[Rfam]
RNA sequence: AGCAGUGAUGAGUAAGAUUAGUCUGACCUGGUAUUGCUAGAUUUGCAUCAGCUUUGACCAGGAAGUGAUCACUUAAUCUUCUCUCUGAGCUG
Numbered sequence: 001a002g003c004a005g006u007g008a009u010g011a012g013u014a015a016g017a018u019u020a021g022u023c024u025g026a027c028c029u030g031g032u033a034u035u036g037c038u039a040g041a042u043u044u045g046c047a048u049c050a051g052c053u054u055u056g057a058c059c060a061g062g063a064a065g066u067g068a069u070c071a072c073u074u075a076a077u078c079u080u081c082u083c084u085c086u087g088a089g090c091u092g
Stems, first nucleotide, its partner, number of pairs: 002090002036052003
The record is a 92-nucleotide sequence from Xenopus laevis, which matches "Z30 small nucleolar RNA" in Rfam. It scores 84 bits against the family's covariance model. The literature on the family includes a 2002 paper in Mol Cell Biol by Galardi et al., "Purified box C/D snoRNPs are able to reproduce site-specific 2'-O-methylation of target RNA in vitro". Gene Ontology terms of the family: RNA processing and nucleolus. The family has 20 seed sequences and 802 matches in Rfam 15.1.